[Rfam]
RNA sequence: AUGAAGAAUACGGGAGAAACGGGGCUAUGCCCCGUACCGAAGAUGCAAGCUAAUAUCUUCCCCGGGUAUUAGCGAAUCUUUCAGGUGCAAAGACCGUAUUCUGACA
Numbered sequence: 001a002u003g004a005a006g007a008a009u010a011c012g013g014g015a016g017a018a019a020c021g022g023g024g025c026u027a028u029g030c031c032c033c034g035u036a037c038c039g040a041a042g043a044u045g046c047a048a049g050c051u052a053a054u055a056u057c058u059u060c061c062c063c064g065g066g067u068a069u070u071a072g073c074g075a076a077u078c079u080u081u082c083a084g085g086u087g088c089a090a091a092g093a094c095c096g097u098a099u100u101c102u103g104a105c106a
Stems, first nucleotide, its partner, number of pairs: 006101008020034004036086003039082002043080001045078001049073010
Rfam assigns this 106-nucleotide RNA sequence from Thermacetogenium phaeum to the family "Glycine riboswitch aptamer".
About the family: This family represents the bacterial glycine riboswitch.
Rfam links the family to the GO term glycine biosynthetic process.